Shown here is a 55-nucleotide RNA from Genlisea violacea, a member of the family "Plastid-psbA-3 3UTR RNA". The organism belongs to Genlisea, within Eukaryota. Pairs were carried over by alignment from the consensus structure, which was predicted with LocARNA. Clan: Plastid-psbA 3UTR RNA clan. About the family: Plastid psbA-3 is a non-coding RNA (ncRNA) present in plastids. It was identified in inverted repeat sequences in the 3 prime untranslate region (3UTR) of photosystem II quinone-binding protein (psbA). By type it is a cis-regulatory element.
[Rfam]
RNA sequence: AAAGGAGCAAUAAUCCGUCUUGAUAGAACAAGAAAGAAUUGAUUGCUCCUUAUAU
Numbered sequence: 001a002a003a004g005g006a007g008c009a010a011u012a013a014u015c016c017g018u019c020u021u022g023a024u025a026g027a028a029c030a031a032g033a034a035a036g037a038a039u040u041g042a043u044u045g046c047u048c049c050u051u052a053u054a055u
Stems, first nucleotide, its partner, number of pairs: 002051010012040002018033005